[Rfam]
RNA: Purine riboswitch aptamer
Organism: Hypnocyclicus thermotrophus
RNA sequence: UAGAAUAAUGAAUACUUCAUUCAUAUAAGCCAAUAAUAAGGAUUGGUGUUUCUACGAUUGACCGUAAAUCAAUCUUCUAUGAGUGAAAGUUUUUAUAUU
Numbered sequence: 001u002a003g004a005a006u007a008a009u010g011a012a013u014a015c016u017u018c019a020u021u022c023a024u025a026u027a028a029g030c031c032a033a034u035a036a037u038a039a040g041g042a043u044u045g046g047u048g049u050u051u052c053u054a055c056g057a058u059u060g061a062c063c064g065u066a067a068a069u070c071a072a073u074c075u076u077c078u079a080u081g082a083g084u085g086a087a088a089g090u091u092u093u094u095a096u097a098u099u
Base pairs, nucleotide, nucleotide: 018085019084020083021082022081023080024079025078029047030046031045032044033043034042056074057073058072059071060070061069